[Rfam]
RNA: Actinobacteria sRNA Ms_IGR-5
RNA sequence: ACACAAGAAGGGAGGUGGUUCGGCAGAUGUAUGCAUUCCGGACGCGUGAGGUGACUGCGGGCUAGCGGCCCGACGUCGCAUCUCGAAUUCGGCGCCGGACCCGCGCGUGUGCACGCGCGCAGCCGGCCCCAUUCCCAAGCAGUCACCCGACCCGCGAGCCGCCGGUACGUCCGGCCGGCUUCCGACCGUCUCGUACGGGAGGAACCAGGCUCGCGGGUCGUCUGCG
Numbered sequence: 001a002c003a004c005a006a007g008a009a010g011g012g013a014g015g016u017g018g019u020u021c022g023g024c025a026g027a028u029g030u031a032u033g034c035a036u037u038c039c040g041g042a043c044g045c046g047u048g049a050g051g052u053g054a055c056u057g058c059g060g061g062c063u064a065g066c067g068g069c070c071c072g073a074c075g076u077c078g079c080a081u082c083u084c085g086a087a088u089u090c091g092g093c094g095c096c097g098g099a100c101c102c103g104c105g106c107g108u109g110u111g112c113a114c115g116c117g118c119g120c121a122g123c124c125g126g127c128c129c130c131a132u133u134c135c136c137a138a139g140c141a142g143u144c145a146c147c148c149g150a151c152c153c154g155c156g157a158g159c160c161g162c163c164g165g166u167a168c169g170u171c172c173g174g175c176c177g178g179c180u181u182c183c184g185a186c187c188g189u190c191u192c193g194u195a196c197g198g199g200a201g202g203a204a205c206c207a208g209g210c211u212c213g214c215g216g217g218u219c220g221u222c223u224g225c226g
Stems, first nucleotide, its partner, number of pairs: 015058005060128004065123002068120002071117001074115003148220013161179006